[Rfam]
Shown here is a 71-nucleotide RNA, a member of the family "nadA riboswitch".
The family's RNA type in Rfam is small RNA.
Rfam's curators put it in the seed alignment.

RNA sequence: GCUUUCAACAUCCCCGUUCCGGGGCGUGAGAUUCCGAAUCGAAACGGAGCCGCGCGGCUGGGACUGAAGGC
Numbered sequence: 001g002c003u004u005u006c007a008a009c010a011u012c013c014c015c016g017u018u019c020c021g022g023g024g025c026g027u028g029a030g031a032u033u034c035c036g037a038a039u040c041g042a043a044a045c046g047g048a049g050c051c052g053c054g055c056g057g058c059u060g061g062g063a064c065u066g067a068a069g070g071c
Base pairs, nucleotide, nucleotide: 001071002070003069004068005067006066007065013057016064017063018062019061020060021059022058026053027052028051032049033048034047035046036045